[Rfam]
RNA sequence: CUUAUUGCUGAUGCAGCAUCAUCAAGAUUCUCAUUUGGAGAUAAGUGAACUGUGCAUACAUUUAUAUCCAUUGACAUGUGAAUCUUGCUGAUGCUUCAUCUGCAAAUAU
Numbered sequence: 001c002u003u004a005u006u007g008c009u010g011a012u013g014c015a016g017c018a019u020c021a022u023c024a025a026g027a028u029u030c031u032c033a034u035u036u037g038g039a040g041a042u043a044a045g046u047g048a049a050c051u052g053u054g055c056a057u058a059c060a061u062u063u064a065u066a067u068c069c070a071u072u073g074a075c076a077u078g079u080g081a082a083u084c085u086u087g088c089u090g091a092u093g094c095u096u097c098a099u100c101u102g103c104a105a106a107u108a109u
Stems, first nucleotide, its partner, number of pairs: 010100004015095007023087008032078002
Dot-bracket structure: .........((((.(((((((.((((((((.((...........................................)).)))))))).))))))).)))).........